Rfam assigns this 187-nucleotide RNA sequence from Labeo rohita to the family "Small nucleolar RNA SNORA81". Rfam links the family to the GO terms nucleolus and RNA processing.

RNA sequence: CCCUUCUUUUUAAAAGUGCCAUGCUAAAAUCACCAGCUCAAGGCCUUCAGGUCUUGCUCUGGUGUUUUUGCUAGUAUUGGUUUAUCGUAAAGAAGGAAGAGCAAAAGCACACGGUCGGAAAUGAGUCUAGGACGGACCUCUUUCUUAAUGUCCAGUGUCCAAGGUCUCGAGAUUUUGUGCCAUACAU
Numbered sequence: 001c002c003c004u005u006c007u008u009u010u011u012a013a014a015a016g017u018g019c020c021a022u023g024c025u026a027a028a029a030u031c032a033c034c035a036g037c038u039c040a041a042g043g044c045c046u047u048c049a050g051g052u053c054u055u056g057c058u059c060u061g062g063u064g065u066u067u068u069u070g071c072u073a074g075u076a077u078u079g080g081u082u083u084a085u086c087g088u089a090a091a092g093a094a095g096g097a098a099g100a101g102c103a104a105a106a107g108c109a110c111a112c113g114g115u116c117g118g119a120a121a122u123g124a125g126u127c128u129a130g131g132a133c134g135g136a137c138c139u140c141u142u143u144c145u146u147a148a149u150g151u152c153c154a155g156u157g158u159c160c161a162a163g164g165u166c167u168c169g170a171g172a173u174u175u176u177g178u179g180c181c182a183u184a185c186a187u
Stems, first nucleotide, its partner, number of pairs: 019080002022076005029069001032066001035060002039056007107180005113174002129158001131156001134153003
The family's RNA type in Rfam is H/ACA-box small nucleolar RNA. On this family, see Gu et al., Nucleic Acids Res 2005: "A novel experimental approach for systematic identification of box H/ACA snoRNAs from eukaryotes". NCBI's taxonomy places the organism under Eukaryota, Vertebrata, Euteleostomi, Cypriniformes, Labeo. A search with the family's covariance model found it, with a score of 77 bits.